Annotation
A member of the RNA family "Streptomyces RNA 5676" from Actinacidiphila oryziradicis, 132 nucleotides long.
[Rfam]
RNA sequence: GUAGGAGGAAACACCCCGUCUGCGGCUCGCCGCGGGCGACACUUUGCCGGUGACUCCCCAUUACCGGCACUGCAGUGCCCUCGCGCACAAAAGGGCCGAUGCCGCAAGCAUCGGUACUCCUCACCGAUCGGU
Numbered sequence: 001g002u003a004g005g006a007g008g009a010a011a012c013a014c015c016c017c018g019u020c021u022g023c024g025g026c027u028c029g030c031c032g033c034g035g036g037c038g039a040c041a042c043u044u045u046g047c048c049g050g051u052g053a054c055u056c057c058c059c060a061u062u063a064c065c066g067g068c069a070c071u072g073c074a075g076u077g078c079c080c081u082c083g084c085g086c087a088c089a090a091a092a093g094g095g096c097c098g099a100u101g102c103c104g105c106a107a108g109c110a111u112c113g114g115u116a117c118u119c120c121u122c123a124c125c126g127a128u129c130g131g132u
Stems, first nucleotide, its partner, number of pairs: 005122005017038009042072001045069002048066006075088004095115008124131002
Overview
From the family's description: Identified by deep sequencing of transcriptome at the end of exponential growth phase. Appears longer on northern blot than sequencing transcript. This indicates processing step. The family's RNA type in Rfam is small RNA. A reference for the family is Vockenhuber et al. (2011), "Deep sequencing-based identification of small non-coding RNAs in Streptomyces coelicolor", RNA Biol. The organism belongs to Actinacidiphila, within Bacteria.